[Rfam]
A member of the RNA family "Alphaproteobacterial ar14" from Aminobacter sp. MSH1, 119 nucleotides long. Rfam 15.1 lists 784 matches to the family in 332 species. Taxonomically the source falls in Aminobacter (Bacteria, Pseudomonadati, Alphaproteobacteria, Phyllobacteriaceae).
RNA sequence: AGCUUUCCGUCAGCGCCGACCUCCUCCCCGGCAAUGGCGGAUCCGGUCAGCUUCUUCCUCCCGAUAAGCUGACCACCUUAACACACCCGCCCGACCUCCUCCCCGGGCGGGUGUCGUUA
Numbered sequence: 001a002g003c004u005u006u007c008c009g010u011c012a013g014c015g016c017c018g019a020c021c022u023c024c025u026c027c028c029c030g031g032c033a034a035u036g037g038c039g040g041a042u043c044c045g046g047u048c049a050g051c052u053u054c055u056u057c058c059u060c061c062c063g064a065u066a067a068g069c070u071g072a073c074c075a076c077c078u079u080a081a082c083a084c085a086c087c088c089g090c091c092c093g094a095c096c097u098c099c100u101c102c103c104c105g106g107g108c109g110g111g112u113g114u115c116g117u118u119a
Stems, first nucleotide, its partner, number of pairs: 007040003011036002015032003045074009083114011